[Rfam]
RNA sequence: GCAUGGCCGAAUUCUGUCCCAGCUGCUCUGUGCUGUGUACAGUCAGACACCAUGCAAAAGUCUCGUCUCAUUUAUGCUCAAUAACUGGAGGAGUGCUUCUCUCAGCUUCAUCCAGCUGCAUAGGAAUGAGUACACUG
Numbered sequence: 001g002c003a004u005g006g007c008c009g010a011a012u013u014c015u016g017u018c019c020c021a022g023c024u025g026c027u028c029u030g031u032g033c034u035g036u037g038u039a040c041a042g043u044c045a046g047a048c049a050c051c052a053u054g055c056a057a058a059a060g061u062c063u064c065g066u067c068u069c070a071u072u073u074a075u076g077c078u079c080a081a082u083a084a085c086u087g088g089a090g091g092a093g094u095g096c097u098u099c100u101c102u103c104a105g106c107u108u109c110a111u112c113c114a115g116c117u118g119c120a121u122a123g124g125a126a127u128g129a130g131u132a133c134a135c136u137g
Stems, first nucleotide, its partner, number of pairs: 001055006014042004019037001067130003071124007083117001085115005090109005
A member of the RNA family "Small nucleolar RNA SNORA15" from Parambassis ranga, 137 nucleotides long.
It is annotated as an H/ACA-box small nucleolar RNA.
Pairs were carried over by alignment from the consensus structure, which was predicted with RNAfold.
The source organism's lineage runs through Eukaryota, Eumetazoa, Bilateria, Percomorphaceae and Parambassis.
The family has 22 seed sequences and 974 matches in Rfam 15.1.
A search with the family's covariance model found it, with a score of 53 bits.
Rfam describes the family as follows. ACA15 is a member of the H/ACA class of snoRNA that guide the sites of modification of uridines to pseudouridines.